[Rfam]
RNA: FMN riboswitch aptamer (RFN element)
Organism: Hydrogenispora ethanolica
RNA sequence: UAUCUCCUUCAGGGCAGGGUGCGGCAGAGUCCAAUUCCCGACCGGUGGUAGUGGGUUAACCCCCGAGUCCACGAGCCUAACGGCUGAUCUGGUGCGAUUCCAGAACCGACGGUACAGUCCGGAUGAGAGAAGGCAAAU
Dot-bracket structure: ..(..(((((......(((.................))).[[((((((..................[[))))..(((....)))...(((((.......)))))]])).(((....]]))).......)))))..)..
Numbered sequence: 001u002a003u004c005u006c007c008u009u010c011a012g013g014g015c016a017g018g019g020u021g022c023g024g025c026a027g028a029g030u031c032c033a034a035u036u037c038c039c040g041a042c043c044g045g046u047g048g049u050a051g052u053g054g055g056u057u058a059a060c061c062c063c064c065g066a067g068u069c070c071a072c073g074a075g076c077c078u079a080a081c082g083g084c085u086g087a088u089c090u091g092g093u094g095c096g097a098u099u100c101c102a103g104a105a106c107c108g109a110c111g112g113u114a115c116a117g118u119c120c121g122g123a124u125g126a127g128a129g130a131a132g133g134c135a136a137a138u
Stems, first nucleotide, its partner, number of pairs: 003136001006133005017039003041118002043108002045072004067106002075084003088104005110121003